RNA: Group II catalytic intron D1-D4-1
Organism: Ornithinibacillus halotolerans
RNA sequence: UAACCGAACAUGAGAAUGUUCGCUGAACUAUCAGAAGUCAGCCGAAGCCAUAGUACCGAAUGCUCCUAGGGUAUUCGGGAAGGGC
Numbered sequence: 001u002a003a004c005c006g007a008a009c010a011u012g013a014g015a016a017u018g019u020u021c022g023c024u025g026a027a028c029u030a031u032c033a034g035a036a037g038u039c040a041g042c043c044g045a046a047g048c049c050a051u052a053g054u055a056c057c058g059a060a061u062g063c064u065c066c067u068a069g070g071g072u073a074u075u076c077g078g079g080a081a082g083g084g085c
Stems, first nucleotide, its partner, number of pairs: 001025002005022007038045002047085003056078008